RNA sequence: CAAUUAAAUGUUUGAUUACCGUAGACAGCAGGGGCAUGGUAAAUGCUUAAUUUAUUCCCGGCCGAGGUUCUGAAGAAUCCUGAUAACUCUUUAUGUAUCAGAUAGAAUCUUACCCUCAUGUCUGCAAAGACUGAGGGUUUUUUAAUGGCUUG
Number, nucleotide and partner (000 for none) at each position: 001c000002a000003a000004u000005u000006a000007a000008a000009u000010g000011u000012u000013u000014g000015a000016u000017u000018a000019c000020c000021g000022u000023a000024g000025a000026c000027a000028g062029c061030a000031g059032g058033g057034g046035c045036a044037u000038g000039g000040u000041a000042a000043a000044u036045g035046c034047u000048u000049a000050a000051u000052u000053u000054a000055u000056u000057c033058c032059c031060g000061g029062c028063c000064g000065a000066g000067g000068u000069u000070c000071u000072g000073a000074a000075g000076a000077a000078u000079c000080c000081u000082g000083a000084u000085a000086a000087c000088u000089c000090u000091u000092u000093a000094u000095g000096u000097a000098u000099c000100a000101g000102a000103u000104a000105g000106a000107a000108u000109c000110u000111u000112a000113c137114c136115c135116u134117c133118a132119u000120g131121u130122c129123u000124g000125c000126a000127a000128a000129g122130a121131c120132u118133g117134a116135g115136g114137g113138u000139u000140u000141u000142u000143u000144a000145a000146u000147g000148g000149c000150u000151u000152g000